The record is an 83-nucleotide sequence from Roseovarius nubinhibens, which matches "chrB-a RNA" in Rfam. Rfam's curators put it in the seed alignment.
[Rfam]
RNA sequence: GGCAUGGGGCCGCCGCGACUGCCCCGUGAGGCUUUGGCCCAAAGUCGCAUCCACUGACCUUUCACAGAGGAUGCUUUGUCAUG
Numbered sequence: 001g002g003c004a005u006g007g008g009g010c011c012g013c014c015g016c017g018a019c020u021g022c023c024c025c026g027u028g029a030g031g032c033u034u035u036g037g038c039c040c041a042a043a044g045u046c047g048c049a050u051c052c053a054c055u056g057a058c059c060u061u062u063c064a065c066a067g068a069g070g071a072u073g074c075u076u077u078g079u080c081a082u083g
Base pairs, nucleotide, nucleotide: 005026006025007024008023009022010021047074048073049072050071051070052069